This 93-nucleotide RNA from Aegilops tauschii belongs to the Rfam family "Small nucleolar RNA snR60/Z15/Z230/Z193/J17". For this family Rfam cites "Guide RNAs with 5' caps and novel box C/D snoRNA-like domains for modification of snRNAs in metazoa" (Tycowski et al., Curr Biol, 2004). Gene Ontology terms of the family: RNA processing and nucleolus. The match comes from Rfam's covariance-model search (59 bits).
RNA sequence: CAAGUUCGGGUGAUGAUCACAAGUUCAUAGUUCAGAUGGCCAAACUGUGACUAUUUGAACAAAAUAGUCUUCCGCUCCUAGCUGAUGAGCUUU
Numbered sequence: 001c002a003a004g005u006u007c008g009g010g011u012g013a014u015g016a017u018c019a020c021a022a023g024u025u026c027a028u029a030g031u032u033c034a035g036a037u038g039g040c041c042a043a044a045c046u047g048u049g050a051c052u053a054u055u056u057g058a059a060c061a062a063a064a065u066a067g068u069c070u071u072c073c074g075c076u077c078c079u080a081g082c083u084g085a086u087g088a089g090c091u092u093u
Stems, first nucleotide, its partner, number of pairs: 004090005
Dot-bracket structure: ...(((((.............................................................................)))))...